Ribosomal protein L19 leader: a 43-nucleotide sequence from Bacillus sp. FJAT-18017. From the family's description: This family is a putative r-protein leader autoregulatory structure found in B. subtilis and other low-GC Gram-positive bacteria. It is located in the 5' untranslated regions of mRNAs encoding ribosomal protein L19 (rplS).
RNA sequence: ACGAUGUUCCGCUGCGAUUAAGAAAUGGUUGCAAGAGCAUCUG
Numbered sequence: 001a002c003g004a005u006g007u008u009c010c011g012c013u014g015c016g017a018u019u020a021a022g023a024a025a026u027g028g029u030u031g032c033a034a035g036a037g038c039a040u041c042u043g
Stems, first nucleotide, its partner, number of pairs: 003041007013033002016029001018027001